[Rfam]
The record is a 105-nucleotide RNA from Gracilibacillus boraciitolerans, which matches "Purine riboswitch aptamer" in Rfam.
RNA sequence: UUUAGUAUGUUUUAUCACCUUCAUAUAUGUUUGGGGGGGAUAUGGUCCAAACGUUUCUACCUGAACACCGUAAAGGUUCGGACUAUGAAGGCGGAGAUCUUGCCA
Numbered sequence: 001u002u003u004a005g006u007a008u009g010u011u012u013u014a015u016c017a018c019c020u021u022c023a024u025a026u027a028u029g030u031u032u033g034g035g036g037g038g039g040a041u042a043u044g045g046u047c048c049a050a051a052c053g054u055u056u057c058u059a060c061c062u063g064a065a066c067a068c069c070g071u072a073a074a075g076g077u078u079c080g081g082a083c084u085a086u087g088a089a090g091g092c093g094g095a096g097a098u099c100u101u102g103c104c105a
Base pairs, nucleotide, nucleotide: 018091019090020089021088022087023086024085025084029052030051031050032049033048034047035046061081062080063079064078065077066076
NCBI's taxonomy places the organism under Bacteria, Bacillati, Bacilli, Gracilibacillus, Gracilibacillus boraciitolerans. The family's consensus secondary structure is taken from published work.